[Rfam]
RNA sequence: UUUGAGGUAAAUGGUGGGUAGCCAACUUGGAGGAAGUGAUCAACCAUUGGGAUAAAAUUAAAUUUGCUUCUUUUUAUCCCCAAAUUUUUUUUACCGUGGGUAAAAAGAUCUUGGGGGUAUAAAAAGAACCAGAUUUAGAUUUAGCCCAAAGAUUGAUGAUGUAUUUCCUCCAAGAAGGAUGCUCACUAUUUUCCCCAAU
Numbered sequence: 001u002u003u004g005a006g007g008u009a010a011a012u013g014g015u016g017g018g019u020a021g022c023c024a025a026c027u028u029g030g031a032g033g034a035a036g037u038g039a040u041c042a043a044c045c046a047u048u049g050g051g052a053u054a055a056a057a058u059u060a061a062a063u064u065u066g067c068u069u070c071u072u073u074u075u076a077u078c079c080c081c082a083a084a085u086u087u088u089u090u091u092u093a094c095c096g097u098g099g100g101u102a103a104a105a106a107g108a109u110c111u112u113g114g115g116g117g118u119a120u121a122a123a124a125a126g127a128a129c130c131a132g133a134u135u136u137a138g139a140u141u142u143a144g145c146c147c148a149a150a151g152a153u154u155g156a157u158g159a160u161g162u163a164u165u166u167c168c169u170c171c172a173a174g175a176a177g178g179a180u181g182c183u184c185a186c187u188a189u190u191u192u193c194c195c196c197a198a199u
Base pairs, nucleotide, nucleotide: 003197004196006194007193009191010190011189012188013187014186015185016184017183018182019181020180022178023177026174027173028172029171030170031169032168033167034166035165039160040159041158042157043153045151047149048148049147050146051145053143054142055141056140058138059137060136061135062134063133064132065131066130068128069127070126071125072124073123074122075119076118077117078116079115080114081113082112087107088106089105090104091103092102093101094100095099
Shown here is a 199-nucleotide RNA from Medicago truncatula, a member of the family "MIR2670 microRNA precursor family". A search with the family's covariance model found it, with a score of 177 bits. Rfam links the family to the GO terms miRNA-mediated post-transcriptional gene silencing and RISC complex. Lineage of the source: Eukaryota > Streptophytina > Euphyllophyta > rosids > Medicago. The base pairs follow the family's consensus structure, which was predicted with RNAalifold.